[Rfam]
Shown here is a 78-nucleotide RNA sequence, a member of the family "c-di-GMP-I-GGC riboswitch aptamer".
RNA sequence: UUUGCUAGAGCCAAAUCUUUUGUAAAGCAGGGGAAGGGAAACCACAGGUCUUAAAUGAAGAUAGCUGGGUUGCCAUAA
Numbered sequence: 001u002u003u004g005c006u007a008g009a010g011c012c013a014a015a016u017c018u019u020u021u022g023u024a025a026a027g028c029a030g031g032g033g034a035a036g037g038g039a040a041a042c043c044a045c046a047g048g049u050c051u052u053a054a055a056u057g058a059a060g061a062u063a064g065c066u067g068g069g070u071u072g073c074c075a076u077a078a
Base pairs, nucleotide, nucleotide: 001078003075004074011037012036016032017031018030019029020027021026040071041070042069043068045067046066047065048062049061050060
Pairs were carried over by alignment from the consensus structure, which is taken from published work. Rfam's curators put it in the seed alignment.